Rfam assigns this 112-nucleotide RNA sequence from Hymenobacter sp. NBH84 to the family "SAM riboswitch aptamer (S box leader)". The match comes from Rfam's covariance-model search (75 bits). The organism belongs to Hymenobacter, within Bacteria.

RNA sequence: UACUUAUCCAGAAAGACCGAGGGAUUGGGCCCUGUGACGUCUUGGCAACCUGACAUAUUACAAGGUGCCAACUCCCAUUUCGCCCUAGCUAUUGGGCGGAAGAAGAUAAGUA
Numbered sequence: 001u002a003c004u005u006a007u008c009c010a011g012a013a014a015g016a017c018c019g020a021g022g023g024a025u026u027g028g029g030c031c032c033u034g035u036g037a038c039g040u041c042u043u044g045g046c047a048a049c050c051u052g053a054c055a056u057a058u059u060a061c062a063a064g065g066u067g068c069c070a071a072c073u074c075c076c077a078u079u080u081c082g083c084c085c086u087a088g089c090u091a092u093u094g095g096g097c098g099g100a101a102g103a104a105g106a107u108a109a110g111u112a
Stems, first nucleotide, its partner, number of pairs: 001112008013043005021032003026077004044069004049065002053059001073104001078101008